[Rfam]
RNA sequence: UGACCCUGGAAAUCAAGUGUUGGUGGAGCCUGGGGGAUGAGUUGAGGUGACCCAACUUGGUUUCAAGGGUCU
Numbered sequence: 001u002g003a004c005c006c007u008g009g010a011a012a013u014c015a016a017g018u019g020u021u022g023g024u025g026g027a028g029c030c031u032g033g034g035g036g037a038u039g040a041g042u043u044g045a046g047g048u049g050a051c052c053c054a055a056c057u058u059g060g061u062u063u064c065a066a067g068g069g070u071c072u
Stems, first nucleotide, its partner, number of pairs: 002071006009064006016057002022052003028048004
Background: The family of this 72-nucleotide sequence from Calyptomena viridis is "mir-551 microRNA precursor family". On this family, see Murchison et al., Genome Res 2008: "Conservation of small RNA pathways in platypus". The match comes from Rfam's covariance-model search (59 bits). Its family is annotated with miRNA-mediated post-transcriptional gene silencing and RISC complex in the Gene Ontology. Rfam 15.1 lists 1,097 matches to the family in 627 species.